[Rfam]
RNA: Small nucleolar RNA SNORA57
Organism: Spermophilus dauricus
RNA sequence: CCUCCUUUUCUUGGCGGAAACCAGGCGUGCGGUCCUGCUUCCCGUUAUGUACGGAGGCAGAAGGAAAGGGUUCUGUCCCCUCGGCGUCAUGUCUUCGGUGCCCGCGGUUUUCUGUCUGCCGGUUCUAUCCUCAAGCGCCGAGACAAAG
Numbered sequence: 001c002c003u004c005c006u007u008u009u010c011u012u013g014g015c016g017g018a019a020a021c022c023a024g025g026c027g028u029g030c031g032g033u034c035c036u037g038c039u040u041c042c043c044g045u046u047a048u049g050u051a052c053g054g055a056g057g058c059a060g061a062a063g064g065a066a067a068g069g070g071u072u073c074u075g076u077c078c079c080c081u082c083g084g085c086g087u088c089a090u091g092u093c094u095u096c097g098g099u100g101c102c103c104g105c106g107g108u109u110u111u112c113u114g115u116c117u118g119c120c121g122g123u124u125c126u127a128u129c130c131u132c133a134a135g136c137g138c139c140g141a142g143a144c145a146a147a148g
Stems, first nucleotide, its partner, number of pairs: 001057005015044003019040002022037004082140006101122002104119004